Description
6A RNA: a 52-nucleotide RNA sequence. Rfam classes the family as a small RNA.
RNA sequence: GUAUCUGCUCGUACAGCAGCGAACAAGUAAAAUAAAGAAAAGCUGAAUAUGA
Numbered sequence: 001g002u003a004u005c006u007g008c009u010c011g012u013a014c015a016g017c018a019g020c021g022a023a024c025a026a027g028u029a030a031a032a033u034a035a036a037g038a039a040a041a042g043c044u045g046a047a048u049a050u051g052a
Base pairs, nucleotide, nucleotide: 006025007024009022010021011020014045015044016043017042